[Rfam]
RNA sequence: GUGAAAUGAUGAUUCAGUUUAUCCAUUCGCUGAGUAGGCUGCACUGACCUCCUUCCAGGCCUCAGUUCCUGUUCUAGGAACCUGGGGCUGUGUAGCCUCCAAGUGCCCUGCAGUCUGCAGUGUUCUACUGUGGAUUGCUGGUGUGUUGGUAGGCUACUGGUAAGACUGGUUGGUGUCAGCAGGGAUGGAGCCCUCUGGGUUCCAUCCCACUAAGAUGAGUGGUGCAAAUCUGAUCAC
Dot-bracket structure: .........(((((..((((..(((((((((..((..((((((((((((..(((((.(((((((((((((.....)))))).)))))))..(((((((......(((..(((((((((((((...)))))))))))))..).))......))))))).)).)))...)))))))).)))).((((((((.((.....)).))))))))))..)).)))))))...))))..))))).